[Rfam]
RNA sequence: CUGAAGCAAAGUUCUGUGACACUCAGACUCUGGUAUGAUAGAAGUCAGUGCACUACAGAACUUUGUUUCCGG
Numbered sequence: 001c002u003g004a005a006g007c008a009a010a011g012u013u014c015u016g017u018g019a020c021a022c023u024c025a026g027a028c029u030c031u032g033g034u035a036u037g038a039u040a041g042a043a044g045u046c047a048g049u050g051c052a053c054u055a056c057a058g059a060a061c062u063u064u065g066u067u068u069c070c071g072g
Stems, first nucleotide, its partner, number of pairs: 004068013020050004026046004
RNA: mir-148/mir-152 microRNA precursor family
Organism: Eudromia elegans